[Rfam]
Small nucleolar RNA SNORA75: a 135-nucleotide RNA from Aotus nancymaae. The family's consensus secondary structure was predicted with PFOLD. U23 belongs to the H/ACA class of snoRNAs. snoRNAs bind a number of proteins (including dyskerin, Gar1p and Nop10p in the case of the H/ACA class) to form snoRNP complexes. This class are thought to guide the sites of modification of uridines to pseudouridines by forming direct base pairing interactions with substrate RNAs. Targets include ribosomal and spliceosomal RNAs as well as the Trypanosoma spliced leader RNA (SL RNA) as possibly other, still unknown cellular RNAs. U23 can direct the pseudouridylation of U97 in human 18S rRNA (Bachellerie JP, Ganot, P unpublished data). U23 is encoded within intron 12 of the nucleolin gene in human, mouse, rat chicken, and Xenopus laevis. Taxonomically the source falls in Aotus (Eukaryota, Deuterostomia, Theria, Euarchontoglires).
RNA sequence: GACUUCUCAUUGAGCUUCUUUCUCUCUAUUGGUGGCAGCUUAUGGAUUCAUAUGAGAAGAGAGAAUUCACAGAACUAGGAUUACUUUUGCCUUCUGUCUUUACAAAGGUAUAUUUGGCUGUUUUGUGAGAUAUUC
Numbered sequence: 001g002a003c004u005u006c007u008c009a010u011u012g013a014g015c016u017u018c019u020u021u022c023u024c025u026c027u028a029u030u031g032g033u034g035g036c037a038g039c040u041u042a043u044g045g046a047u048u049c050a051u052a053u054g055a056g057a058a059g060a061g062a063g064a065a066u067u068c069a070c071a072g073a074a075c076u077a078g079g080a081u082u083a084c085u086u087u088u089g090c091c092u093u094c095u096g097u098c099u100u101u102a103c104a105a106a107g108g109u110a111u112a113u114u115u116g117g118c119u120g121u122u123u124u125g126u127g128a129g130a131u132a133u134u135c
Stems, first nucleotide, its partner, number of pairs: 003059006014051001016046003022038002025035002067128006090108004095104002